[Rfam]
Record summary:
Metazoan signal recognition particle RNA: a 310-nucleotide RNA sequence from Thrips palmi. A search with the family's covariance model found it, with a score of 156 bits. A reference for the family is Rosenblad et al. (2009), "Kinship in the SRP RNA family", RNA Biol. Rfam classes the family as a non-coding RNA gene. Rfam 15.1 lists 383,523 matches to the family in 1,221 species.
RNA sequence: GCUGGGGGCUGGUGGCGCACCCCUGUAAUCCGGCGACCCGGAGGCUGGAAGGUGAGGAUGGCGGCGGGCCGGGUGCAACCGCGGCUUGGGCUCCAUGGUGACCUGGACGUCCGCACUGGGCUCGCCAUCAACAUGGCCUCCCCGGAGGAGUCCGGUCUGGAGGCCAGGUUUCGCUAAGGAGGGGCGAACCGGGUCAGGGGGCAUCCGCUCAGCAGCCAAAAGUCCCCGUGGCGAGCGGCAGGUGGGAUCGCGUCCGAGAGUGGCGCCCUCUCCGCGGCCCGGCUCGUCUCACAGCCACACCACCUUCUUU
Numbered sequence: 001g002c003u004g005g006g007g008g009c010u011g012g013u014g015g016c017g018c019a020c021c022c023c024u025g026u027a028a029u030c031c032g033g034c035g036a037c038c039c040g041g042a043g044g045c046u047g048g049a050a051g052g053u054g055a056g057g058a059u060g061g062c063g064g065c066g067g068g069c070c071g072g073g074u075g076c077a078a079c080c081g082c083g084g085c086u087u088g089g090g091c092u093c094c095a096u097g098g099u100g101a102c103c104u105g106g107a108c109g110u111c112c113g114c115a116c117u118g119g120g121c122u123c124g125c126c127a128u129c130a131a132c133a134u135g136g137c138c139u140c141c142c143c144g145g146a147g148g149a150g151u152c153c154g155g156u157c158u159g160g161a162g163g164c165c166a167g168g169u170u171u172c173g174c175u176a177a178g179g180a181g182g183g184g185c186g187a188a189c190c191g192g193g194u195c196a197g198g199g200g201g202c203a204u205c206c207g208c209u210c211a212g213c214a215g216c217c218a219a220a221a222g223u224c225c226c227c228g229u230g231g232c233g234a235g236c237g238g239c240a241g242g243u244g245g246g247a248u249c250g251c252g253u254c255c256g257a258g259a260g261u262g263g264c265g266c267c268c269u270c271u272c273c274g275c276g277g278c279c280c281g282g283c284u285c286g287u288c289u290c291a292c293a294g295c296c297a298c299a300c301c302a303c304c305u306u307c308u309u310u
Stems, first nucleotide, its partner, number of pairs: 001045003004024005010019002029042003047308008059297004064292001065286009079277006088268004093263004103256001105255006111246002114244002116241003120236009130170003134166008142155005174178001181226005192217003199210003